[Rfam]
The record is a 109-nucleotide sequence from Clostridium intestinale, which matches "SAM riboswitch aptamer (S box leader)" in Rfam. It scores 84 bits against the family's covariance model. Its family is annotated with regulation of gene expression in the Gene Ontology. The organism belongs to Clostridium intestinale, within Bacteria.

RNA sequence: CUUUUAUCAAGAAUGGUGGAGGGACUGGCCCUAUGAAACCUAGCAACAGCUAACGCUCAUUAUGUUGGAAUUGUGCUAAAUCCUGCAGGUAUAUCCUGAUAGAUAAGAG
Dot-bracket structure: ((((((((....(.(((...(((.[.[[)))......))))((((.((.((((((.......))))))...))))))...(]].]((((.....))))..)))))))))